[Rfam]
RNA sequence: AAAACAGUUAUAGCGCCAGUACUGAAGAAAUCGUGAAUCUUCAGUAGACGAGGUGGAGGAGUAUCGAAGUUUUCGGCGGAUGCCUCCCGAUCGCAAUGCCCGAUCGUUAUCUUGCUUUUAAAGGACUCAAGUGAUUGAGUAGACAGGGAAGCAAGAAGGCAAAUUA
Numbered sequence: 001a002a003a004a005c006a007g008u009u010a011u012a013g014c015g016c017c018a019g020u021a022c023u024g025a026a027g028a029a030a031u032c033g034u035g036a037a038u039c040u041u042c043a044g045u046a047g048a049c050g051a052g053g054u055g056g057a058g059g060a061g062u063a064u065c066g067a068a069g070u071u072u073u074c075g076g077c078g079g080a081u082g083c084c085u086c087c088c089g090a091u092c093g094c095a096a097u098g099c100c101c102g103a104u105c106g107u108u109a110u111c112u113u114g115c116u117u118u119u120a121a122a123g124g125a126c127u128c129a130a131g132u133g134a135u136u137g138a139g140u141a142g143a144c145a146g147g148g149a150a151g152c153a154a155g156a157a158g159g160c161a162a163a164u165u166a
Stems, first nucleotide, its partner, number of pairs: 020046009055087005064076004088106006110156007125140006
This 166-nucleotide RNA sequence from Rummeliibacillus stabekisii belongs to the Rfam family "glmS glucosamine-6-phosphate activated ribozyme aptamer".
It scores 122 bits against the family's covariance model.
This entry contains a glucosamine-6-phosphate activated ribozyme that is found in the mRNA for GlmS. GlmS is an enzyme that uses fructose-6-phosphate and glutamine to generate glucosamine-6-phosphate. The ribozyme catalyses self cleavage of the glmS mRNA that is thought to regulate GlmS activity.
Lineage of the source: Bacteria > Bacillati > Bacillota > Caryophanaceae > Rummeliibacillus.